[Rfam]
RNA sequence: UCACAAGUUCGAGGCCAUAGAAGAAGUGAUCAUGGCAAGGCCCUGUCAGAUUUCAAUGCAAUCUGGAAAUUCUACU
Numbered sequence: 001u002c003a004c005a006a007g008u009u010c011g012a013g014g015c016c017a018u019a020g021a022a023g024a025a026g027u028g029a030u031c032a033u034g035g036c037a038a039g040g041c042c043c044u045g046u047c048a049g050a051u052u053u054c055a056a057u058g059c060a061a062u063c064u065g066g067a068a069a070u071u072c073u074a075c076u
Stems, first nucleotide, its partner, number of pairs: 011043001013042004019076002022073004027037002047065006
Mammalian CPEB3 ribozyme: a 76-nucleotide RNA from Alligator sinensis. The match comes from Rfam's covariance-model search (40 bits). Taxonomically the source falls in Alligator (Eukaryota, Eumetazoa, Tetrapoda, Sauropsida).